[Rfam]
RNA sequence: GGUCAGUGAUGAAUAGUAAAAGGUCUGAGUCCCCAGGUCCCUUCCCUGUAUCCAGAUGGUCCCCAGCUGCUUCUCCUCCAUCAGGCUCCAGUAGUGCCAUGAUGGGCCAAAGGGCAGCUGACAGUUGGAGAUGUCCCUUUCUGGUGUUUCUUGGUGAGCCCAGGGAAGACGCUGUGGUCGGCAUCCAACAGCUUUGUUACAAAGGGACUUUGGUCGGUGGGAGUGCUGGGAUCUGGGGUUUUGAUCUGACGUUUUCAAGCUGAGACC
Numbered sequence: 001g002g003u004c005a006g007u008g009a010u011g012a013a014u015a016g017u018a019a020a021a022g023g024u025c026u027g028a029g030u031c032c033c034c035a036g037g038u039c040c041c042u043u044c045c046c047u048g049u050a051u052c053c054a055g056a057u058g059g060u061c062c063c064c065a066g067c068u069g070c071u072u073c074u075c076c077u078c079c080a081u082c083a084g085g086c087u088c089c090a091g092u093a094g095u096g097c098c099a100u101g102a103u104g105g106g107c108c109a110a111a112g113g114g115c116a117g118c119u120g121a122c123a124g125u126u127g128g129a130g131a132u133g134u135c136c137c138u139u140u141c142u143g144g145u146g147u148u149u150c151u152u153g154g155u156g157a158g159c160c161c162a163g164g165g166a167a168g169a170c171g172c173u174g175u176g177g178u179c180g181g182c183a184u185c186c187a188a189c190a191g192c193u194u195u196g197u198u199a200c201a202a203a204g205g206g207a208c209u210u211u212g213g214u215c216g217g218u219g220g221g222a223g224u225g226c227u228g229g230g231a232u233c234u235g236g237g238g239u240u241u242u243g244a245u246c247u248g249a250c251g252u253u254u255u256c257a258a259g260c261u262g263a264g265a266c267c
Stems, first nucleotide, its partner, number of pairs: 001267004034248006042223005049216001060207004064120007077106007085098001086096001128186001130185006144170002147167007

About this RNA: Shown here is a 267-nucleotide RNA from Dasypus novemcinctus, a member of the family "Small Cajal body specific RNA 6". A reference for the family is Darzacq et al. (2002), "Cajal body-specific small nuclear RNAs: a novel class of 2'-O-methylation and pseudouridylation guide RNAs", EMBO J. Rfam's curators put it in the seed alignment. Rfam links the family to the GO terms nucleolus and RNA processing. Pairs were carried over by alignment from the consensus structure, which is taken from published work. The organism belongs to Dasypus, within Eukaryota. The family has 17 seed sequences and 1,309 matches in Rfam 15.1. Rfam classes the family as a small Cajal body RNA. Rfam describes the family as follows. U88 is small Cajal body specific RNA (scaRNA). scaRNAs are a novel class of small nuclear RNAs which localise to the Cajal bodies. U88 is found associated with both fibrillarin and Gar1p and co-localises with coilin in Cajal bodies.